[Rfam]
RNA sequence: AGAGGCCCAUCCGUGGCCGGGCGCGGAAUGCUUGCCUCGUCGCUGCGGUGACGAAGCAAGCAUUCUGCCAGGCCACUUACUCUGCCCAC
Numbered sequence: 001a002g003a004g005g006c007c008c009a010u011c012c013g014u015g016g017c018c019g020g021g022c023g024c025g026g027a028a029u030g031c032u033u034g035c036c037u038c039g040u041c042g043c044u045g046c047g048g049u050g051a052c053g054a055a056g057c058a059a060g061c062a063u064u065c066u067g068c069c070a071g072g073c074c075a076c077u078u079a080c081u082c083u084g085c086c087c088a089c
Base pairs, nucleotide, nucleotide: 004086005085006084013076014075015074016073017072018071021069023068024067025066026065027064028063029062030061031060032059033058034057035056039052040051041050042049043048
A member of the RNA family "mir-9195 microRNA precursor family" from Cnephaeus nilssonii, 89 nucleotides long. NCBI's taxonomy places the organism under Eukaryota, Eumetazoa, Chordata, Laurasiatheria, Cnephaeus. Rfam 15.1 lists 438 matches to the family in 7 species. Its family is annotated with miRNA-mediated post-transcriptional gene silencing and RISC complex in the Gene Ontology. Pairs were carried over by alignment from the consensus structure, which was predicted with RNAalifold.